[Rfam]
RNA sequence: GGGGCGGUAUCGCGAAUGCGAACUGCACCUGGCGGCCUUGAAGCCUCGGUUGAAGUUAAUACGUCAAUUGCAUGGCAUUGCGUAUUCUGCUCUGAGCCGUAGGGACCGAGACAGAAGG
Numbered sequence: 001g002g003g004g005c006g007g008u009a010u011c012g013c014g015a016a017u018g019c020g021a022a023c024u025g026c027a028c029c030u031g032g033c034g035g036c037c038u039u040g041a042a043g044c045c046u047c048g049g050u051u052g053a054a055g056u057u058a059a060u061a062c063g064u065c066a067a068u069u070g071c072a073u074g075g076c077a078u079u080g081c082g083u084a085u086u087c088u089g090c091u092c093u094g095a096g097c098c099g100u101a102g103g104g105a106c107c108g109a110g111a112c113a114g115a116a117g118g
Stems, first nucleotide, its partner, number of pairs: 001030003004026005010021002087114003090110003094106001097104002
RNA: pan motif
Organism: Paenibacillus phyllosphaerae